[Rfam]
Description:
The record is an 88-nucleotide RNA sequence from Arabis alpina, which matches "mir-160 microRNA precursor family" in Rfam. It scores 75 bits against the family's covariance model. The family has 7 seed sequences and 1,502 matches in Rfam 15.1.
RNA sequence: UCGUGCCUGGCUCCCUGUAUGCCACAAGUAAAUACUGAUUUAGUUGCAAAAUCGAAUUUCUGGUGGCGUGCAGAGUAGCCAAGCAUGA
Dot-bracket structure: ((((((.(((((.(.(((((((((..((...............................))..)))))))))..).))))).))))))